Notes:
A member of the RNA family "TPP riboswitch aptamer (THI element)" from Rufibacter tibetensis, 89 nucleotides long. Rfam 15.1 lists 16,130 matches to the family in 8,693 species. It scores 69 bits against the family's covariance model.
RNA sequence: GGAACGCUUUAGGGGUGCUGAAAGGCUGAGAUAUACCCUUGGAACCUGAACAGGAUAAUGCCUGCGAAGGGAAAAGUGUGCUACCGUAU
Numbered sequence: 001g002g003a004a005c006g007c008u009u010u011a012g013g014g015g016u017g018c019u020g021a022a023a024g025g026c027u028g029a030g031a032u033a034u035a036c037c038c039u040u041g042g043a044a045c046c047u048g049a050a051c052a053g054g055a056u057a058a059u060g061c062c063u064g065c066g067a068a069g070g071g072a073a074a075a076g077u078g079u080g081c082u083a084c085c086g087u088a089u
Base pairs, nucleotide, nucleotide: 006077007076008075009074010073011039012038013037014036016033017026018025019024045070046069047068051064052063053062054061